[Rfam]
Shown here is a 91-nucleotide RNA sequence from Rhizobiales bacterium PAR1, a member of the family "Glycine riboswitch aptamer".
RNA sequence: AGAAACGUCGUCGGGAGAGACCUUUGCUUGCAAAGGCGCCGAAGGAGCAACCGCCCCGGAAACUCUCAGGCAAAAGGACCACGACACUUCU
Numbered sequence: 001a002g003a004a005a006c007g008u009c010g011u012c013g014g015g016a017g018a019g020a021c022c023u024u025u026g027c028u029u030g031c032a033a034a035g036g037c038g039c040c041g042a043a044g045g046a047g048c049a050a051c052c053g054c055c056c057c058g059g060a061a062a063c064u065c066u067c068a069g070g071c072a073a074a075a076g077g078a079c080c081a082c083g084a085c086a087c088u089u090c091u
Stems, first nucleotide, its partner, number of pairs: 007085005013080002021036004038071003041067002045065003051059002